A member of the RNA family "SAM (S-adenosyl methionine) riboswitch aptamer" from Actinoplanes siamensis, 117 nucleotides long. Its family is annotated with regulation of gene expression and S-adenosylmethionine metabolic process in the Gene Ontology.
[Rfam]
RNA sequence: GGUCAUGAGCGCCAGCGCGAAGCCCCGGCUUGCUGGCCGGCAACCCUCCAGUUCGCGGGUGGGGUGCCCCGGGUGAUGACCCGACCCGGCGCACGGUGUGCCGGGUAAGCCGCGAAA
Numbered sequence: 001g002g003u004c005a006u007g008a009g010c011g012c013c014a015g016c017g018c019g020a021a022g023c024c025c026c027g028g029c030u031u032g033c034u035g036g037c038c039g040g041c042a043a044c045c046c047u048c049c050a051g052u053u054c055g056c057g058g059g060u061g062g063g064g065u066g067c068c069c070c071g072g073g074u075g076a077u078g079a080c081c082c083g084a085c086c087c088g089g090c091g092c093a094c095g096g097u098g099u100g101c102c103g104g105g106u107a108a109g110c111c112g113c114g115a116a117a
Base pairs, nucleotide, nucleotide: 001081002080003079004078009038011037012036013035014034015033016032021030022029039068040067041066044064045063046062048059049058084106085105086104087103088102089101090100091099092098093097
Dot-bracket structure: ((((....(.((((((....((......)).)))))))(((..(((.((........))..))).))).........))))..((((((((((...))))))))))...........